RNA sequence: GUGCAUCGGCACCUUGGCUCUAGACUGCUUACUGCUACGAAGCAUUAAGGAAACAGUAACAGUCUACAGUCAUGGCUACUGAAGCAUG
Numbered sequence: 001g002u003g004c005a006u007c008g009g010c011a012c013c014u015u016g017g018c019u020c021u022a023g024a025c026u027g028c029u030u031a032c033u034g035c036u037a038c039g040a041a042g043c044a045u046u047a048a049g050g051a052a053a054c055a056g057u058a059a060c061a062g063u064c065u066a067c068a069g070u071c072a073u074g075g076c077u078a079c080u081g082a083a084g085c086a087u088g
Stems, first nucleotide, its partner, number of pairs: 012075002015072004023064005029059005
Dot-bracket structure: ...........((.((((....(((((.(((((.....................))))))))))....)))).)).............
RNA: mir-132 microRNA precursor family
Organism: Sphenodon punctatus